RNA sequence: CUACGGUAAUUGAUUCACGGGCGUCUAACCUGGUAACGGGUUAGAGCAUCACUGGGUGAAUUGCUGGAACCUCCUGAAGUCCACUUUCCUACAACGCAGCCGGAAACGGCAAACGUGACAGGUCGAAAAAAAGUGGAAUUGGACAAUCAGCAGCCAAGCUCCUGUGAGGAAACUCUGGAGAAGGUCCAACGACUAGGAUAUACCGUCUACGGCUUCGGCUAUGACGAUGAAAUCCGUAGGGCGUCCAUAGACGUUCGAAGUGCCCAGCCCCUACAGAGUAAACACUGAGGGUGAAGAUAUAGUCUAUUCCAUGAUCGAAAGACAUGG
Number, nucleotide and partner (000 for none) at each position: 001c000002u000003a000004c000005g025006g024007u023008a000009a000010u020011u019012g018013a000014u000015u000016c000017a000018c012019g011020g010021g000022c000023g007024u006025c005026u000027a000028a000029c040030c039031u038032g000033g000034u000035a000036a000037c000038g031039g030040g029041u000042u000043a000044g000045a000046g000047c000048a000049u000050c000051a000052c267053u266054g265055g264056g000057u262058g261059a000060a000061u000062u152063g151064c150065u149066g148067g147068a000069a000070c000071c000072u143073c142074c141075u000076g139077a000078a000079g000080u000081c000082c000083a000084c000085u000086u000087u000088c000089c000090u000091a000092c000093a000094a000095c000096g000097c000098a000099g000100c000101c000102g000103g000104a000105a000106a000107c000108g000109g000110c000111a000112a000113a000114c000115g000116u000117g000118a000119c000120a000121g000122g000123u000124c000125g000126a000127a000128a000129a000130a000131a000132a000133g000134u000135g000136g000137a000138a000139u076140u000141g074142g073143a072144c000145a000146a000147u067148c066149a065150g064151c063152a062153g185154c184155c000156a000157a000158g000159c000160u178161c177162c000163u000164g000165u000166g000167a000168g000169g000170a000171a000172a000173c000174u000175c000176u000177g161178g160179a000180g000181a000182a000183g000184g154185u153186c000187c000188a000189a305190c000191g304192a303193c302194u301195a300196g000197g000198a000199u000200a000201u000202a000203c000204c000205g000206u000207c000208u000209a000210c000211g000212g000213c000214u000215u000216c000217g000218g000219c000220u000221a000222u000223g000224a000225c000226g000227a000228u000229g000230a000231a000232a000233u000234c000235c000236g000237u000238a000239g000240g000241g000242c000243g000244u000245c000246c000247a000248u000249a000250g000251a000252c000253g000254u000255u000256c000257g000258a000259a000260g000261u058262g057263c000264c055265c054266a053267g052268c000269c000270c291271c290272u289273a000274c287275a286276g285277a000278g283279u000280a000281a000282a000283c278284a000285c276286u275287g274288a000289g272290g271291g270292u000293g000294a000295a000296g000297a000298u000299a000300u195301a194302g193303u192304c191305u189306a000307u000308u000309c000310c000311a325312u324313g323314a000315u322316c321317g000318a000319a000320a000321g316322a315323c313324a312325u311326g000327g000
Record summary: Shown here is a 327-nucleotide sequence from Bacillus sp. OxB-1, a member of the family "Group I catalytic intron". The family has 12 seed sequences and 5,602 matches in Rfam 15.1. The source organism's lineage runs through Bacteria, Bacillati, Caryophanales, Bacillaceae and Bacillus. Rfam describes the family as follows. Group I catalytic introns are large self-splicing ribozymes. Gene Ontology term of the family: Group I intron splicing.